[Rfam]
RNA sequence: AGUGAUCAAACCUCUGAUGCCGUAAGGCGUUGAGCAC
Numbered sequence: 001a002g003u004g005a006u007c008a009a010a011c012c013u014c015u016g017a018u019g020c021c022g023u024a025a026g027g028c029g030u031u032g033a034g035c036a037c
Base pairs, nucleotide, nucleotide: 016031017030018029019028020027021026
Dot-bracket structure: ...............((((((....))))))......
Source information: The record is a 37-nucleotide RNA from Limnothrix sp. P13C2, which matches "CRISPR RNA direct repeat element" in Rfam. Rfam 15.1 lists 253 matches to the family in 19 species. The base pairs follow the family's consensus structure, which was predicted with WAR. A search with the family's covariance model found it, with a score of 43 bits.